[Rfam]
Nucleotides: 083
Stems, first nucleotide, its partner, number of pairs: 008077006015071002018068001020066010034052003039047002
Number, partner (000 for none) and nucleotide at each position: 001000u002000u003000a004000a005000c006000u007000c008077a009076a010075a011074u012073u013072u014000g015071u016070a017000u018068g019000g020066a021065g022064u023063u024062g025061g026060a027059a028058c029057g030000u031000c032000u033000g034052c035051c036050u037000a038000c039047g040046u041000u042000u043000g044000c045000c046040g047039c048000u049000a050036a051035g052034g053000g054000c055000g056000u057029u058028g059027u060026u061025u062024c063023a064022a065021u066020u067000g068018u069000a070016u071015a072013a073012a074011g075010u076009u077008u078000g079000a080000g081000u082000u083000a